[Rfam]
Source information: Bacillaceae-1 RNA: a 66-nucleotide RNA sequence from Lederbergia lenta. The source organism's lineage runs through Bacteria, Bacilli, Caryophanales, Bacillaceae and Lederbergia. The match comes from Rfam's covariance-model search (67 bits).

RNA sequence: AAAAAAGGUCCCUCGACUAAGGUCACCACGUCCUGUGGCAACGUCGAAGCACCCACAUCCUGUGGG
Numbered sequence: 001a002a003a004a005a006a007g008g009u010c011c012c013u014c015g016a017c018u019a020a021g022g023u024c025a026c027c028a029c030g031u032c033c034u035g036u037g038g039c040a041a042c043g044u045c046g047a048a049g050c051a052c053c054c055a056c057a058u059c060c061u062g063u064g065g066g
Base pairs, nucleotide, nucleotide: 011049013047014046015045016044017043026038027037028036029035052066053065054064055063056062